[Rfam]
RNA sequence: AUAUUUUGAUGAUUAAUUUUAUGUGUCAACUUGUCUGGGUCACUGGGUUCCUAGAUAU
Numbered sequence: 001a002u003a004u005u006u007u008g009a010u011g012a013u014u015a016a017u018u019u020u021a022u023g024u025g026u027c028a029a030c031u032u033g034u035c036u037g038g039g040u041c042a043c044u045g046g047g048u049u050c051c052u053a054g055a056u057a058u
Base pairs, nucleotide, nucleotide: 001058002057003056004055005054006053